[Rfam]
RNA: Ribosomal protein L10 leader
Organism: Paenibacillaceae bacterium
RNA sequence: CACAUUCGAAUAUGCAUACCGUAGACAGUAGGUGUCCAUUGGACUUAAUUUCCUACCGAGGUGUUAUGAUAUAAUGUUUGUUGCGCCGAGGCUGUGUUAUUACAUAGCACUUGGAGGAAUGGACAAUUCAUGGCCUUCGCUCGGUUGCGGAGGCUUUUCUCAUGCACUG
Numbered sequence: 001c002a003c004a005u006u007c008g009a010a011u012a013u014g015c016a017u018a019c020c021g022u023a024g025a026c027a028g029u030a031g032g033u034g035u036c037c038a039u040u041g042g043a044c045u046u047a048a049u050u051u052c053c054u055a056c057c058g059a060g061g062u063g064u065u066a067u068g069a070u071a072u073a074a075u076g077u078u079u080g081u082u083g084c085g086c087c088g089a090g091g092c093u094g095u096g097u098u099a100u101u102a103c104a105u106a107g108c109a110c111u112u113g114g115a116g117g118a119a120u121g122g123a124c125a126a127u128u129c130a131u132g133g134c135c136u137u138c139g140c141u142c143g144g145u146u147g148c149g150g151a152g153g154c155u156u157u158u159c160u161c162a163u164g165c166a167c168u169g
Base pairs, nucleotide, nucleotide: 028056029055030054031053032052034044035043036042133154134153135152136151137150138149139148140147